[Rfam]
RNA sequence: CCCUGCAUUCGAAAGUGACUUUGGCACUGCCCCGUGGCCAGGUCAUUGAUACUGCAGGAAGAGUAACUCGAAGGUUUAUUCCCGUGUUUCCUGCGGAUGUGGUUUCCAGGGAACCUCGUUACCUUCGGACA
Number, nucleotide and partner (000 for none) at each position: 001c000002c058003c057004u056005g055006c054007a053008u000009u051010c000011g000012a000013a000014a047015g046016u045017g044018a043019c042020u041021u040022u000023g039024g038025c037026a000027c000028u000029g000030c000031c000032c000033c000034g000035u000036g000037g025038c024039c023040a021041g020042g019043u018044c017045a016046u015047u014048g000049a000050u000051a009052c000053u007054g006055c005056a004057g003058g002059a000060a000061g000062a000063g000064u000065a000066a000067c128068u000069c127070g126071a125072a124073g123074g122075u121076u000077u000078a000079u000080u000081c000082c000083c000084g000085u000086g114087u113088u112089u111090c110091c109092u108093g107094c000095g000096g000097a000098u000099g000100u000101g000102g000103u000104u000105u000106c000107c093108a092109g091110g090111g089112a088113a087114c086115c000116u000117c000118g000119u000120u000121a075122c074123c073124u072125u071126c070127g069128g067129a000130c000131a000